Bacterial small subunit ribosomal RNA: a 351-nucleotide part of an RNA from Brachyspira murdochii. The organism belongs to Brachyspira murdochii, within Bacteria. The family's consensus secondary structure is taken from published work. On this family, see Yusupov et al., Science 2001: "Crystal structure of the ribosome at 5.5 A resolution".
RNA sequence: GGCGUAAAGGGUGAGUAGGCGGACUUAUAAGUCUAAGGUGAAAGACCGAAGCUCAACUUCGGGAACGCCUCGGAUACUGUGAGUCUUGGAUAUUGUAGGGGAUGAUGGAAUUCUCGGUGUAGCGGUGGAAUGCGCAGAUAUCGAGAGGAACACCUAUAGCGAAGGCAGUCAUCUGGGCAUUUAUCGACGCUGAAUCACGAAAGCUAGGGGAGCAAACAGGCUUAGAUACCCUGGUAGUCCUAGCCGUAAACGUUGUACACUAGGUGCUUCUAUUUAAAUAGGAGUGCCGUAGCUAACGUCUUAAGUGUACCGCCUGAGGAGUAUGCCCGCAAGGGUGAAACUCAAAGAAAU
Numbered sequence: 001g002g003c004g005u006a007a008a009g010g011g012u013g014a015g016u017a018g019g020c021g022g023a024c025u026u027a028u029a030a031g032u033c034u035a036a037g038g039u040g041a042a043a044g045a046c047c048g049a050a051g052c053u054c055a056a057c058u059u060c061g062g063g064a065a066c067g068c069c070u071c072g073g074a075u076a077c078u079g080u081g082a083g084u085c086u087u088g089g090a091u092a093u094u095g096u097a098g099g100g101g102a103u104g105a106u107g108g109a110a111u112u113c114u115c116g117g118u119g120u121a122g123c124g125g126u127g128g129a130a131u132g133c134g135c136a137g138a139u140a141u142c143g144a145g146a147g148g149a150a151c152a153c154c155u156a157u158a159g160c161g162a163a164g165g166c167a168g169u170c171a172u173c174u175g176g177g178c179a180u181u182u183a184u185c186g187a188c189g190c191u192g193a194a195u196c197a198c199g200a201a202a203g204c205u206a207g208g209g210g211a212g213c214a215a216a217c218a219g220g221c222u223u224a225g226a227u228a229c230c231c232u233g234g235u236a237g238u239c240c241u242a243g244c245c246g247u248a249a250a251c252g253u254u255g256u257a258c259a260c261u262a263g264g265u266g267c268u269u270c271u272a273u274u275u276a277a278a279u280a281g282g283a284g285u286g287c288c289g290u291a292g293c294u295a296a297c298g299u300c301u302u303a304a305g306u307g308u309a310c311c312g313c314c315u316g317a318g319g320a321g322u323a324u325g326c327c328c329g330c331a332a333g334g335g336u337g338a339a340a341c342u343c344a345a346a347g348a349a350a351u
Stems, first nucleotide, its partner, number of pairs: 001314003009311001011198004016192001018191003022085007030078002032074003036070005046062006089185003092181001094179003100174007107151001111147008122133003159166002203244006212238002217233004255310006263288011292299002316343003325336004